[Rfam]
RNA: Group II catalytic intron D1-D4-6
RNA sequence: AAAUGGCGAUCAGGACAAAGCCUAGCCAGCAGUUCUGUACCGAGUCUUGCGUGGUGCAUGGCAACGUGCACGGCGAAGCGUAGACAGGAAGGCAGUAGGCCGGAAUAAAGUGAAGAGGAUCAUUAGCCCCGAAAUCUAACGUGAUCGAAGCAGCCGAUCCUAUCUCUCUGUGGAGAAGGCAGAAACAGCAUCACCGCAAAGGCGAGGGGAUGACUGAGGCUUCCGGGGUUCGUACC
Numbered sequence: 001a002a003a004u005g006g007c008g009a010u011c012a013g014g015a016c017a018a019a020g021c022c023u024a025g026c027c028a029g030c031a032g033u034u035c036u037g038u039a040c041c042g043a044g045u046c047u048u049g050c051g052u053g054g055u056g057c058a059u060g061g062c063a064a065c066g067u068g069c070a071c072g073g074c075g076a077a078g079c080g081u082a083g084a085c086a087g088g089a090a091g092g093c094a095g096u097a098g099g100c101c102g103g104a105a106u107a108a109a110g111u112g113a114a115g116a117g118g119a120u121c122a123u124u125a126g127c128c129c130c131g132a133a134a135u136c137u138a139a140c141g142u143g144a145u146c147g148a149a150g151c152a153g154c155c156g157a158u159c160c161u162a163u164c165u166c167u168c169u170g171u172g173g174a175g176a177a178g179g180c181a182g183a184a185a186c187a188g189c190a191u192c193a194c195c196g197c198a199a200a201g202g203c204g205a206g207g208g209g210a211u212g213a214c215u216g217a218g219g220c221u222u223c224c225g226g227g228g229u230u231c232g233u234a235c236c
Base pairs, nucleotide, nucleotide: 012036013035014034015033016032020030021029023205025203026202038090040088041087044085045084046083047082048080049079050075051074052073054071055070056069057068058067059066060065126229127228128227129226130225131224147223148222149221150220151219153180154179155178158174159173160172186216187215188214189212190211191210192209194207195206